[Rfam]
RNA sequence: UAAGAGAAAGGGAGACAGUUCAUGUCUCCUACAUUGAGACGAACGACAAGGUAUAGCAAAAUCAAUGGCAGAGAUAUCGUUUCCGGCGUCAUCUUUCUAUUGACGAUUCGAUUGUUGCUCAUCCACAU
Numbered sequence: 001u002a003a004g005a006g007a008a009a010g011g012g013a014g015a016c017a018g019u020u021c022a023u024g025u026c027u028c029c030u031a032c033a034u035u036g037a038g039a040c041g042a043a044c045g046a047c048a049a050g051g052u053a054u055a056g057c058a059a060a061a062u063c064a065a066u067g068g069c070a071g072a073g074a075u076a077u078c079g080u081u082u083c084c085g086g087c088g089u090c091a092u093c094u095u096u097c098u099a100u101u102g103a104c105g106a107u108u109c110g111a112u113u114g115u116u117g118c119u120c121a122u123c124c125a126c127a128u
Stems, first nucleotide, its partner, number of pairs: 007035002010032001012028006067124002071120003076112004085107001087105005
RNA: Small nucleolar RNA snoR111